[Rfam]
RNA sequence: UUGUCACUGGACGAAGUGAAUGGGUCAAAUGGGCUUGUCUAAGUUCCGACCCAGGAAAGUCCCCGGGCUAUUCUCCGCAGAGAUGCGGCCUUGUCAACGAGAGAGUCAUACGGUGGAGUCGAUCCAAUCAGAGCUGAGACGUGUGUAUGGAGCUCACGUGGUCCCUCUGCCGAUGAUAUCAUGGCCGUGAUAACACAGUUAUUCACCUGGUUCUUAAUUGGACUAACCGAACGGGGCUUACGUUCCAGUGACA
Numbered sequence: 001u002u003g004u005c006a007c008u009g010g011a012c013g014a015a016g017u018g019a020a021u022g023g024g025u026c027a028a029a030u031g032g033g034c035u036u037g038u039c040u041a042a043g044u045u046c047c048g049a050c051c052c053a054g055g056a057a058a059g060u061c062c063c064c065g066g067g068c069u070a071u072u073c074u075c076c077g078c079a080g081a082g083a084u085g086c087g088g089c090c091u092u093g094u095c096a097a098c099g100a101g102a103g104a105g106u107c108a109u110a111c112g113g114u115g116g117a118g119u120c121g122a123u124c125c126a127a128u129c130a131g132a133g134c135u136g137a138g139a140c141g142u143g144u145g146u147a148u149g150g151a152g153c154u155c156a157c158g159u160g161g162u163c164c165c166u167c168u169g170c171c172g173a174u175g176a177u178a179u180c181a182u183g184g185c186c187g188u189g190a191u192a193a194c195a196c197a198g199u200u201a202u203u204c205a206c207c208u209g210g211u212u213c214u215u216a217a218u219u220g221g222a223c224u225a226a227c228c229g230a231a232c233g234g235g236g237c238u239u240a241c242g243u244u245c246c247a248g249u250g251a252c253a
Base pairs, nucleotide, nucleotide: 002253003252004251005250006249007248008247009246010245011244014208016206017205018204019203021053022052023051024050025049026048031046032045033044034043035042036041057239058238059237061236062235063234064233076087077086078085079084090101091100092099093098105177106176107175112171113170114169115168116167117166121163122162123161124160131155132154133153134152141148142147210223211222212221213220